[Rfam]
RNA: Alphaproteobacterial ar14
RNA sequence: ACCUGAGCGGCGACGUCUCUCCUCCUCCCUGACGUCGCCGCAUCUUAUUUUAAGUGUGAGCUCUCCUCCUCCCUGCUCACACCUAACGGAAACGGCGGCGUCCACCUCCUCCCGGGCGCCGCCGUUUUC
Numbered sequence: 001a002c003c004u005g006a007g008c009g010g011c012g013a014c015g016u017c018u019c020u021c022c023u024c025c026u027c028c029c030u031g032a033c034g035u036c037g038c039c040g041c042a043u044c045u046u047a048u049u050u051u052a053a054g055u056g057u058g059a060g061c062u063c064u065c066c067u068c069c070u071c072c073c074u075g076c077u078c079a080c081a082c083c084u085a086a087c088g089g090a091a092a093c094g095g096c097g098g099c100g101u102c103c104a105c106c107u108c109c110u111c112c113c114g115g116g117c118g119c120c121g122c123c124g125u126u127u128u129c
Base pairs, nucleotide, nucleotide: 007041008040009039011037012036013035014034015033016032017031052084054082055081056080057079058078059077060076061075093124094123095122096121097120098119099118100117101116102115103114